[Rfam]
Nucleotides: 102
Stems, first nucleotide, its partner, number of pairs: 019087007029049001031047004058078007
Number, partner (000 for none) and nucleotide at each position: 001000a002000u003000u004000u005000a006000a007000u008000a009000a010000u011000a012000a013000a014000a015000u016000a017000u018000a019087g020086u021085u022084c023083a024082u025081a026000u027000a028000a029049u030000a031047g032046c033045a034044g035000u036000a037000a038000u039000a040000u041000g042000g043000u044034c045033u046032g047031c048000a049029a050000g051000u052000u053000u054000c055000u056000a057000c058078c059077g060076a061075a062074c063073u064072a065000c066000c067000g068000u069000a070000a071000a072064u073063g074062g075061u076060u077059u078058g079000a080000c081025u082024a083023u084022g085021a086020g087019c088000a089000a090000u091000u092000u093000u094000a095000a096000u097000u098000u099000a100000c101000g102000c